THF-II riboswitch (folE RNA): a 39-nucleotide RNA sequence from Mesorhizobium japonicum. For this family Rfam cites "Structural insights into translation regulation by the THF-II riboswitch" (Xu et al., Nucleic Acids Res, 2023). The base pairs follow the family's consensus structure, which is taken from published work.
RNA sequence: CCGUUCAACUCGUUCCUCCUUGGAGAGGAACUACGGGAG
Numbered sequence: 001c002c003g004u005u006c007a008a009c010u011c012g013u014u015c016c017u018c019c020u021u022g023g024a025g026a027g028g029a030a031c032u033a034c035g036g037g038a039g
Base pairs, nucleotide, nucleotide: 001036002035003034004033012031013030014029015028016027017026018025